[Rfam]
Shown here is a 59-nucleotide RNA sequence from Mesorhabditis belari, a member of the family "mir-255 microRNA precursor family". Gene Ontology terms of the family: RISC complex and miRNA-mediated post-transcriptional gene silencing. The organism belongs to Mesorhabditis, within Eukaryota. A reference for the family is Zisoulis et al. (2010), "Comprehensive discovery of endogenous Argonaute binding sites in Caenorhabditis elegans", Nat Struct Mol Biol.

RNA sequence: GUAAGAAAUCUACUCAGUUUUACGUUUUCGCGCGCUAAAACUGAAAAGAUUUGUUACAG
Dot-bracket structure: ((((.((((((...(((((((((((......))).))))))))...)))))).))))..